[Rfam]
RNA sequence: AGAGAGGUUAUGGGGGCCAUAGAAGGAACGUUCACAUCGAGGUCCCUGUCAGGUAUCUGCUUACCUGCGAAUCCUUCU
Numbered sequence: 001a002g003a004g005a006g007g008u009u010a011u012g013g014g015g016g017c018c019a020u021a022g023a024a025g026g027a028a029c030g031u032u033c034a035c036a037u038c039g040a041g042g043u044c045c046c047u048g049u050c051a052g053g054u055a056u057c058u059g060c061u062u063a064c065c066u067g068c069g070a071a072u073c074c075u076u077c078u
Stems, first nucleotide, its partner, number of pairs: 013046006021078007029039002050067006
RNA: Mammalian CPEB3 ribozyme
Organism: Laticauda laticaudata